[Rfam]
RNA sequence: UCAGUCAGUGUAAACAUCCUACACUCUCAGCGGUGCCCUCUAGCAGCCGGGAGUGGGAUGUUUGCGCUGCCUGA
Numbered sequence: 001u002c003a004g005u006c007a008g009u010g011u012a013a014a015c016a017u018c019c020u021a022c023a024c025u026c027u028c029a030g031c032g033g034u035g036c037c038c039u040c041u042a043g044c045a046g047c048c049g050g051g052a053g054u055g056g057g058a059u060g061u062u063u064g065c066g067c068u069g070c071c072u073g074a
Base pairs, nucleotide, nucleotide: 002073003072004071006069008067009066010065011064012063013062014061015060016059017058018057019056020055023054024053025052026051027050028049030047031046

This 74-nucleotide RNA from Coregonus sp. 'balchen' belongs to the Rfam family "mir-30 microRNA precursor family". It scores 62 bits against the family's covariance model. Rfam describes the family as follows. This family consists of the mammalian microRNA (miRNA) precursor mir-30a. Animal miRNAs are transcribed as ~70nt precursors and subsequently processed by the Dicer enzyme to give a ~22nt product. In this case the mature sequence comes from both the 3' (miR-30) and 5' (mir-97-6) arms of the precursor. The source organism's lineage runs through Eukaryota, Bilateria, Actinopterygii, Salmonidae and Coregonus.